[Rfam]
RNA sequence: GGUCACGAGUUCCGGCGACAAGUCUCGGCUGGCCGGACGGCAACCCUCCACUGCGGUGGGGUGCCCCGAGUAACGACCUGGCGCAACGCCGCCCGGCGUCUGCGCAAGCGCAUCGA
Numbered sequence: 001g002g003u004c005a006c007g008a009g010u011u012c013c014g015g016c017g018a019c020a021a022g023u024c025u026c027g028g029c030u031g032g033c034c035g036g037a038c039g040g041c042a043a044c045c046c047u048c049c050a051c052u053g054c055g056g057u058g059g060g061g062u063g064c065c066c067c068g069a070g071u072a073a074c075g076a077c078c079u080g081g082c083g084c085a086a087c088g089c090c091g092c093c094c095g096g097c098g099u100c101u102g103c104g105c106a107a108g109c110g111c112a113u114c115g116a
Base pairs, nucleotide, nucleotide: 001078002077003076004075009038011037012036013035014034015033016032021030022029039065040064041063044061045060046059048056049055081105082104083103084102085101086099087098088097089096090095
The record is a 116-nucleotide RNA from Dermacoccus sp. 147Ba, which matches "SAM (S-adenosyl methionine) riboswitch aptamer" in Rfam. Lineage of the source: Bacteria > Bacillati > Micrococcales > Dermacoccaceae > Dermacoccus. SAM-IV is a mRNA element that regulates gene expression via direct sensing of S-adenosylmethionine (SAM or AdoMet). Rfam 15.1 lists 2,360 matches to the family in 1,305 species.